[Rfam]
RNA sequence: CCUCCCGAAAUGCGUCUUAGCGCAGCCUCUCCGGAGGCAGAUCGCGGGGUAGAGUUACUGAUUGGGAACUUAGACCGAAAGGUCUGGGUUCUCAGUCAAACUCCGAACCUACGAUCGCCUCAGAAGGAGGGAGUGGGCCACACGGCGUAAGGUUGGGUGGCAAGAGGGAAACAGCCCAGAGCCGGGUUAAGGCCCCCAAGUGCCGGCUAAGUGCACCAAAGGCAUCCUCAGCCACAGACAGCGGGAAGGUGGGCCCAGCAGCAGCCAUCCUCUAAGGAGUGCGUAACAGCUCACCCGCCGAGGCUGAGGGUCCUGCAGACGUGUCGGGGCUAAGCCGGCCGCCGAGACCCGGCCGGUGGGUCCUUAGGACUCACUUGGUAGGGAGGCGCUCCGGUAGGGCGGAAGGUGGGUCGUGAGAUCCACUGGACCUGCCGGAGGUGCAGAU
Numbered sequence: 001c002c003u004c005c006c007g008a009a010a011u012g013c014g015u016c017u018u019a020g021c022g023c024a025g026c027c028u029c030u031c032c033g034g035a036g037g038c039a040g041a042u043c044g045c046g047g048g049g050u051a052g053a054g055u056u057a058c059u060g061a062u063u064g065g066g067a068a069c070u071u072a073g074a075c076c077g078a079a080a081g082g083u084c085u086g087g088g089u090u091c092u093c094a095g096u097c098a099a100a101c102u103c104c105g106a107a108c109c110u111a112c113g114a115u116c117g118c119c120u121c122a123g124a125a126g127g128a129g130g131g132a133g134u135g136g137g138c139c140a141c142a143c144g145g146c147g148u149a150a151g152g153u154u155g156g157g158u159g160g161c162a163a164g165a166g167g168g169a170a171a172c173a174g175c176c177c178a179g180a181g182c183c184g185g186g187u188u189a190a191g192g193c194c195c196c197c198a199a200g201u202g203c204c205g206g207c208u209a210a211g212u213g214c215a216c217c218a219a220a221g222g223c224a225u226c227c228u229c230a231g232c233c234a235c236a237g238a239c240a241g242c243g244g245g246a247a248g249g250u251g252g253g254c255c256c257a258g259c260a261g262c263a264g265c266c267a268u269c270c271u272c273u274a275a276g277g278a279g280u281g282c283g284u285a286a287c288a289g290c291u292c293a294c295c296c297g298c299c300g301a302g303g304c305u306g307a308g309g310g311u312c313c314u315g316c317a318g319a320c321g322u323g324u325c326g327g328g329g330c331u332a333a334g335c336c337g338g339c340c341g342c343c344g345a346g347a348c349c350c351g352g353c354c355g356g357u358g359g360g361u362c363c364u365u366a367g368g369a370c371u372c373a374c375u376u377g378g379u380a381g382g383g384a385g386g387c388g389c390u391c392c393g394g395u396a397g398g399g400c401g402g403a404a405g406g407u408g409g410g411u412c413g414u415g416a417g418a419u420c421c422a423c424u425g426g427a428c429c430u431g432c433c434g435g436a437g438g439u440g441c442a443g444a445u
Base pairs, nucleotide, nucleotide: 001386002385003384004383005382006381011024012023013022014021015020026133027131028130029129030128031127032126036119037118038117040116041115042114043113044112046110047109052104053102054101060097061096062095063094064093065092066091067090068089069088071086072085073084074083075082076081137161138160139159140158141157143155144154145153166177167176168175181353182352183351184350185349186348187347191343192342193341200340202339203338204337205336206335207334220314221313222312224311225310226309227308228307229306230305231304232303233302241298242297243296244295245294247271248270249269252266253265254264272276277292281290282289355375357373358372359371360370361369387440389437390436391435392434393433394432395431396430397429398428405424406423407422408421409420410419411418412417
Rfam assigns this 445-nucleotide part of an RNA from Sulfuracidifex metallicus to the family "Archaeal large subunit ribosomal RNA". It scores 2800 bits against the family's covariance model. The source organism's lineage runs through Archaea, Sulfolobales, Sulfolobaceae, Sulfuracidifex and Sulfuracidifex metallicus. The family has 91 seed sequences and 2,955 matches in Rfam 15.1.